[Rfam]
This 79-nucleotide sequence from a Paenibacillaceae bacterium belongs to the Rfam family "ZMP/ZTP riboswitch aptamer (pfl RNA motif)".
Gene Ontology terms of the family: regulation of purine nucleotide biosynthetic process and one-carbon metabolic process.
The source organism's lineage runs through Bacteria, Bacillati, Bacillota, Caryophanales and Paenibacillaceae.
Rfam 15.1 lists 3,295 matches to the family in 2,545 species.
RNA sequence: UUAUCGGUAUGUAACUGGCGGAGCAUGGUGAACCAUGAGGGAGCAUACCGCUCAUAAGCCGUACGCCUGGGCAAAGGUG
Numbered sequence: 001u002u003a004u005c006g007g008u009a010u011g012u013a014a015c016u017g018g019c020g021g022a023g024c025a026u027g028g029u030g031a032a033c034c035a036u037g038a039g040g041g042a043g044c045a046u047a048c049c050g051c052u053c054a055u056a057a058g059c060c061g062u063a064c065g066c067c068u069g070g071g072c073a074a075a076g077g078u079g
Stems, first nucleotide, its partner, number of pairs: 003052001005050008015040002017067004025036004058072003